Shown here is a 96-nucleotide RNA sequence from Synechococcus phage S-B68, a member of the family "wcaG RNA". A search with the family's covariance model found it, with a score of 64 bits.
[Rfam]
RNA sequence: CUGAGUUUCCAACUUCUCAUAAAGAGUUGGUGGUGGAGUCUAAUGACCUCUCCGGGUUUCCAGUUUCUCCCUAAAGAACUGGUGGCGUGCAUGUAA
Numbered sequence: 001c002u003g004a005g006u007u008u009c010c011a012a013c014u015u016c017u018c019a020u021a022a023a024g025a026g027u028u029g030g031u032g033g034u035g036g037a038g039u040c041u042a043a044u045g046a047c048c049u050c051u052c053c054g055g056g057u058u059u060c061c062a063g064u065u066u067c068u069c070c071c072u073a074a075a076g077a078a079c080u081g082g083u084g085g086c087g088u089g090c091a092u093g094u095a096a
Stems, first nucleotide, its partner, number of pairs: 009030007036050003054069003060082006
The organism belongs to Kyanoviridae, within Viruses.
It is annotated as a cis-regulatory element.